[Rfam]
Nucleotides: 278
Base pairs, nucleotide, nucleotide: 003275004274005273006272007271008270023255024254025253027251028250029249031247032246033245034244035243036242037241038240039239040238041237042236043235045233046232047231048230049229050228051227
Number, partner (000 for none) and nucleotide at each position: 001000c002000g003275u004274u005273u006272a007271a008270c009000u010000a011000u012000u013000a014000a015000a016000a017000g018000u019000u020000u021000c022000g023255u024254u025253u026000u027251g028250g029249u030000c031247c032246c033245u034244u035243a036242a037241c038240u039239u040238a041237u042236u043235u044000u045233u046232u047231g048230g049229u050228u051227u052000c053000g054000u055000u056000u057000u058000g059000g060000u061000c062000c063000c064000u065000u066000a067000a068000c069000u070000c071000u072000u073000c074000c075000u076000u077000c078000g079000u080000c081000a082000a083000c084000c085000a086000c087000u088000u089000u090000g091000g092000u093000c094000c095000u096000u097000u098000a099000u100000g101000u102000u103000a104000g105000g106000a107000u108000g109000a110000a111000u112000g113000u114000a115000u116000u117000a118000g119000a120000g121000u122000u123000a124000a125000g126000g127000a128000c129000c130000a131000a132000a133000a134000c135000g136000a137000a138000a139000u140000c141000g142000a143000a144000a145000a146000a147000u148000a149000a150000g151000u152000u153000a154000a155000g156000u157000g158000a159000c160000c161000a162000a163000a164000a165000c166000g167000a168000a169000a170000u171000c172000a173000a174000a175000a176000a177000a178000u179000a180000a181000g182000u183000u184000a185000a186000g187000a188000g189000a190000c191000c192000a193000a194000a195000g196000c197000g198000a199000a200000a201000c202000u203000u204000u205000u206000a207000a208000u209000a210000g211000u212000u213000a214000a215000g216000g217000g218000a219000c220000c221000a222000a223000a224000a225000c226000a227051a228050a229049a230048c231047c232046a233045a234000a235043a236042a237041a238040u239039a240038a241037g242036u243035u244034a245033a246032g247031g248000g249029a250028c251027c252000a253025a254024a255023a256000c257000g258000a259000a260000a261000c262000u263000u264000u265000u266000a267000a268000u269000a270008g271007u272006u273005a274004a275003g276000g277000g278000a
Description
A member of the RNA family "MIR2655 microRNA precursor family" from Medicago truncatula, 278 nucleotides long. Its family is annotated with miRNA-mediated post-transcriptional gene silencing and RISC complex in the Gene Ontology. Rfam 15.1 lists 892 matches to the family in 5 species.